[Rfam]
RNA sequence: GUGAAAUGAUGAUUCAGUUUAUCCAUUCGCUGAGUACGCUGCACUGACCUUCUUCCAAGCCUCAGUUCCUGUUCUAGGAACUCAGGGCCAUGUAGCCUCCAAAUGCCCUGCAGUUUGUGGUGUUCUAUCAUGGACAGCUUGUGUGUAUUGGUGGACUACCGGAAAGAAGGGUUGGUGUCAGCAGAGAUGGGUCCCUCUGGGUCCUAUCUCACCAAGAUGAGUGGUGGAAAUCUGAUCAC
Numbered sequence: 001g002u003g004a005a006a007u008g009a010u011g012a013u014u015c016a017g018u019u020u021a022u023c024c025a026u027u028c029g030c031u032g033a034g035u036a037c038g039c040u041g042c043a044c045u046g047a048c049c050u051u052c053u054u055c056c057a058a059g060c061c062u063c064a065g066u067u068c069c070u071g072u073u074c075u076a077g078g079a080a081c082u083c084a085g086g087g088c089c090a091u092g093u094a095g096c097c098u099c100c101a102a103a104u105g106c107c108c109u110g111c112a113g114u115u116u117g118u119g120g121u122g123u124u125c126u127a128u129c130a131u132g133g134a135c136a137g138c139u140u141g142u143g144u145g146u147a148u149u150g151g152u153g154g155a156c157u158a159c160c161g162g163a164a165a166g167a168a169g170g171g172u173u174g175g176u177g178u179c180a181g182c183a184g185a186g187a188u189g190g191g192u193c194c195c196u197c198u199g200g201g202u203c204c205u206a207u208c209u210c211a212c213c214a215a216g217a218u219g220a221g222u223g224g225u226g227g228a229a230a231u232c233u234g235a236u237c238a239c
Stems, first nucleotide, its partner, number of pairs: 010238005017231004023224007030216002034212002038182004042177008050168005055162002059088004065081006092159004097154002105144002107141001110138002113135010184210008193201002

Small nucleolar RNA SNORD17: a 239-nucleotide sequence from Hipposideros armiger. On this family, see Huttenhofer et al., EMBO J 2001: "RNomics: an experimental approach that identifies 201 candidates for novel, small, non-messenger RNAs in mouse". About the family: The snoRNA HBI-43 belongs to the C/D family of snoRNAs, guiding 2'O-ribose methylation at position U3797 of the 28S rRNA. Pseudouridylation in position U3797 is predicted to be guided by the H/ACA snoRNA ACA48. Pairs were carried over by alignment from the consensus structure, which was predicted with RNAalifold. A search with the family's covariance model found it, with a score of 239 bits.